[Rfam]
Shown here is a 571-nucleotide RNA, a member of the family "ROOL RNA". Rfam describes the family as follows. Firmicutes, Fusobacteria (1 example), Tenericutes (1 example). By type it is a small RNA. It is one of the family's seed sequences.
RNA sequence: UAUCAGAAUUAUGUUUGCAAUAACCCCGAUGAAAACGGUUGUCAACCUUUCGGGACACGAUUAUAAUGAAUGUUUAUGGAAUGAUAGUUUUAUAAGCAAGUCAACUUUGCAUUAUGGAAGUAUGCAAGAUAAGAGAAAAAUUCUCAAAUUUAGUCGUGGUGCUAAGAGUUAUCGCUUCAAAAGGUACGGAACUUAUCGCUGUGGCAAUAGACGCUCCUGUGGAGAAUAAGCCUUAUACUAACGAGUGGAAUCGCAAAGUCCCUAAGGUAAUCCAAAUUAACACAGUCUGUUUUGAUGCUUGAGAAAUCAGGCUAUAAGGUAAGUCGCUGGUAAAAGUAGCCAUAUGACAGUAUUGAAAACAAAUCUUUUCUUUGUAAUGUAUUAAAAAAAUUUCAAAUGCUGAAUGACUGGUGAAAUUUGUGUAUAACCAAUUACACACAAGCUUUGAGAAUAAUCUACGGUAAGAAACUAUGGGGUCGCUACCUAUAGUUCAGCCUUAUCGUCUUGGUGGCUGAAAAUUGAAGAAGAUAAUGGAGGUAAGGCGAAGGUCUUAUUGUAAACAUAAUUGUGA
Numbered sequence: 001u002a003u004c005a006g007a008a009u010u011a012u013g014u015u016u017g018c019a020a021u022a023a024c025c026c027c028g029a030u031g032a033a034a035a036c037g038g039u040u041g042u043c044a045a046c047c048u049u050u051c052g053g054g055a056c057a058c059g060a061u062u063a064u065a066a067u068g069a070a071u072g073u074u075u076a077u078g079g080a081a082u083g084a085u086a087g088u089u090u091u092a093u094a095a096g097c098a099a100g101u102c103a104a105c106u107u108u109g110c111a112u113u114a115u116g117g118a119a120g121u122a123u124g125c126a127a128g129a130u131a132a133g134a135g136a137a138a139a140a141u142u143c144u145c146a147a148a149u150u151u152a153g154u155c156g157u158g159g160u161g162c163u164a165a166g167a168g169u170u171a172u173c174g175c176u177u178c179a180a181a182a183g184g185u186a187c188g189g190a191a192c193u194u195a196u197c198g199c200u201g202u203g204g205c206a207a208u209a210g211a212c213g214c215u216c217c218u219g220u221g222g223a224g225a226a227u228a229a230g231c232c233u234u235a236u237a238c239u240a241a242c243g244a245g246u247g248g249a250a251u252c253g254c255a256a257a258g259u260c261c262c263u264a265a266g267g268u269a270a271u272c273c274a275a276a277u278u279a280a281c282a283c284a285g286u287c288u289g290u291u292u293u294g295a296u297g298c299u300u301g302a303g304a305a306a307u308c309a310g311g312c313u314a315u316a317a318g319g320u321a322a323g324u325c326g327c328u329g330g331u332a333a334a335a336g337u338a339g340c341c342a343u344a345u346g347a348c349a350g351u352a353u354u355g356a357a358a359a360c361a362a363a364u365c366u367u368u369u370c371u372u373u374g375u376a377a378u379g380u381a382u383u384a385a386a387a388a389a390a391u392u393u394c395a396a397a398u399g400c401u402g403a404a405u406g407a408c409u410g411g412u413g414a415a416a417u418u419u420g421u422g423u424a425u426a427a428c429c430a431a432u433u434a435c436a437c438a439c440a441a442g443c444u445u446u447g448a449g450a451a452u453a454a455u456c457u458a459c460g461g462u463a464a465g466a467a468a469c470u471a472u473g474g475g476g477u478c479g480c481u482a483c484c485u486a487u488a489g490u491u492c493a494g495c496c497u498u499a500u501c502g503u504c505u506u507g508g509u510g511g512c513u514g515a516a517a518a519u520u521g522a523a524g525a526a527g528a529u530a531a532u533g534g535a536g537g538u539a540a541g542g543c544g545a546a547g548g549u550c551u552u553a554u555u556g557u558a559a560a561c562a563u564a565a566u567u568g569u570g571a
Stems, first nucleotide, its partner, number of pairs: 008567001010565001015560002020555001025054005035049001037047003056158006067103003071098002074095009105128003110124003114121002133145005168552001170531001177523001180520001183519001184513001187329003191324007198286006214224004230268006238258002242253003246274004287350005297312005333417001339412004399495004439507003442457001449455001461501001464498002468491001470488006540551004